[Rfam]
RNA sequence: CUCCCAUUAAUGAAGUCUACAGUGUAAAACCUGCUGCAGGAGGCUGUAGGUGGAUGUGUGGGGAG
Numbered sequence: 001c002u003c004c005c006a007u008u009a010a011u012g013a014a015g016u017c018u019a020c021a022g023u024g025u026a027a028a029a030c031c032u033g034c035u036g037c038a039g040g041a042g043g044c045u046g047u048a049g050g051u052g053g054a055u056g057u058g059u060g061g062g063g064a065g
Base pairs, nucleotide, nucleotide: 001065002064003063004062005061015051016050017049018048019047020046021045022044023043030040031039032038

Shown here is a 65-nucleotide RNA sequence from Echeneis naucrates, a member of the family "Selenocysteine insertion sequence 1". Rfam links the family to the GO term selenocysteine incorporation. By type it is a cis-regulatory element. Lineage of the source: Eukaryota > Bilateria > Neopterygii > Neoteleostei > Echeneis.